SAM riboswitch aptamer (S box leader): a 138-nucleotide RNA from Saccharibacillus sacchari.
RNA sequence: AUCUUAUCAAGAGCAGGCGGAGGGAAAAGCCCGAUGAAGCCCGGCAACCGACCCUUUACGGGGCACGGUGCUAAUUCUUGCUCGUUCAUUCGAAUCCUGCUUAUUUUUUGCGCGGACGAAUGAACGGAGAGAUAAGAA
Dot-bracket structure: .(((((((....(..(((...(((..[[[)))......))))((((.(((.((.......)).)..))))))...(]]].(.((((((((((........................)))))))))))..)))))))).
The match comes from Rfam's covariance-model search (73 bits).